[Rfam]
RNA sequence: GAUCCUCAGUAAUUGCGGUCGGCUUUAUGCCGGCUGAGGAAAGUCCAUUCUCGCACAGGCUGCGAUGCCUGUAGUGUUCGUGCUCGGUGAAAAAAUAAGCCGGGGAACUCUUUUUAAGAGUUACGGCGGAUUCCAAGCUAAGGCUUAGCUAUGCGGCAGAAUCCUUAAGGUGCCACAGUGACGAAUGUCCUGAGAAAUCUCGACAAUGGAACGCGGUAAACCCCUCGAGCGGGAAACCCAAACUUUGGUAGGGGAGCUUCACACACGGUAAUUGAACCAAGUGUGGGGGAGAAAUAGGUUCUAUUUCUCAGAUAGAUAAUUACUACUUCCUAAUUUGUUCCUGGAAGUUAGGAAGCACAAAACAUGGCUUAUAGGG
Numbered sequence: 001g002a003u004c005c006u007c008a009g010u011a012a013u014u015g016c017g018g019u020c021g022g023c024u025u026u027a028u029g030c031c032g033g034c035u036g037a038g039g040a041a042a043g044u045c046c047a048u049u050c051u052c053g054c055a056c057a058g059g060c061u062g063c064g065a066u067g068c069c070u071g072u073a074g075u076g077u078u079c080g081u082g083c084u085c086g087g088u089g090a091a092a093a094a095a096u097a098a099g100c101c102g103g104g105g106a107a108c109u110c111u112u113u114u115u116a117a118g119a120g121u122u123a124c125g126g127c128g129g130a131u132u133c134c135a136a137g138c139u140a141a142g143g144c145u146u147a148g149c150u151a152u153g154c155g156g157c158a159g160a161a162u163c164c165u166u167a168a169g170g171u172g173c174c175a176c177a178g179u180g181a182c183g184a185a186u187g188u189c190c191u192g193a194g195a196a197a198u199c200u201c202g203a204c205a206a207u208g209g210a211a212c213g214c215g216g217u218a219a220a221c222c223c224c225u226c227g228a229g230c231g232g233g234a235a236a237c238c239c240a241a242a243c244u245u246u247g248g249u250a251g252g253g254g255a256g257c258u259u260c261a262c263a264c265a266c267g268g269u270a271a272u273u274g275a276a277c278c279a280a281g282u283g284u285g286g287g288g289g290a291g292a293a294a295u296a297g298g299u300u301c302u303a304u305u306u307c308u309c310a311g312a313u314a315g316a317u318a319a320u321u322a323c324u325a326c327u328u329c330c331u332a333a334u335u336u337g338u339u340c341c342u343g344g345a346a347g348u349u350a351g352g353a354a355g356c357a358c359a360a361a362a363c364a365u366g367g368c369u370u371a372u373a374g375g376g
Base pairs, nucleotide, nucleotide: 004376005375006374008324009323010322011321012320013319014318016036017035018034019033020032021031041370042369043368045367046366047365048364050233051232052231053230054229055072056071057070058069059068060067078228079227080226082224083104084103085102086101087100088099105124106122107121108120109119110118111117125223126222128164129163130162131161137154138153142150143149144148170221171220172217173216174215186205187204188203189202192199193198237253238252239251257288258287259286260285261284262283263282289309290308291307292306293305294304295303296302326355327354328353329352330351331350332349333348334347335346336345
The record is a 376-nucleotide RNA from Lentilactobacillus hilgardii, which matches "Bacterial RNase P class B" in Rfam. Ribonuclease P (RNase P) is a ubiquitous endoribonuclease, found in archaea, bacteria and eukarya as well as chloroplasts and mitochondria. Its best characterised activity is the generation of mature 5'-ends of tRNAs by cleaving the 5'-leader elements of precursor-tRNAs. The family's RNA type in Rfam is ribozyme. The literature on the family includes a 1998 paper in Annu Rev Biochem by Frank and Pace, "Ribonuclease P: unity and diversity in a tRNA processing ribozyme".